[Rfam]
Nucleotides: 065
Stems, first nucleotide, its partner, number of pairs: 001065004
Number, partner (000 for none) and nucleotide at each position: 001065g002064u003063g004062c005000c006000g007000u008000g009000a010000u011000g012000g013000u014000u015000u016000u017000g018000g019000a020000u021000a022000a023000g024000u025000u026000u027000c028000g029000g030000c031000u032000g033000a034000a035000a036000g037000a038000a039000u040000u041000g042000a043000u044000g045000c046000c047000a048000a049000c050000u051000u052000u053000g054000a055000u056000u057000u058000c059000u060000g061000a062004g063003c064002a065001c
Rfam assigns this 65-nucleotide RNA from Caenorhabditis auriculariae to the family "Caenorhabditis snoRNA ceN108". It scores 59 bits against the family's covariance model. For this family Rfam cites "Systematic identification of non-coding RNA 2,2,7-trimethylguanosine cap structures in Caenorhabditis elegans" (Jia et al., BMC Mol Biol, 2007). The base pairs follow the family's consensus structure.